Annotation:
A member of the RNA family "Streptomyces RNA 6106" from Streptomyces sp. SID5785, 80 nucleotides long. Pairs were carried over by alignment from the consensus structure. Taxonomically the source falls in Streptomyces (Bacteria, Actinomycetes, Kitasatosporales, Streptomycetaceae). On this family, see Vockenhuber et al., RNA Biol 2011: "Deep sequencing-based identification of small non-coding RNAs in Streptomyces coelicolor". Rfam's curators write: Identified by deep sequencing of transcriptome at the end of exponential growth phase. Appears smaller on northern blot than sequencing transcript. This indicates processing step. Streptomyces specific.
[Rfam]
RNA sequence: ACGCCGUUCAGGCGGCGUUCGAGGGCCUCUGGCCUGACCGCGGGGAUGGUGCCGUGUCGGCGCAGCACCAUCCCCGCGCC
Numbered sequence: 001a002c003g004c005c006g007u008u009c010a011g012g013c014g015g016c017g018u019u020c021g022a023g024g025g026c027c028u029c030u031g032g033c034c035u036g037a038c039c040g041c042g043g044g045g046a047u048g049g050u051g052c053c054g055u056g057u058c059g060g061c062g063c064a065g066c067a068c069c070a071u072c073c074c075c076g077c078g079c080c
Base pairs, nucleotide, nucleotide: 001018002017003016004015005014006013007012019037020036021035023034024033026032027031040077041076042075043074044073045072046071047070048069049068050067051066052065054063055062056061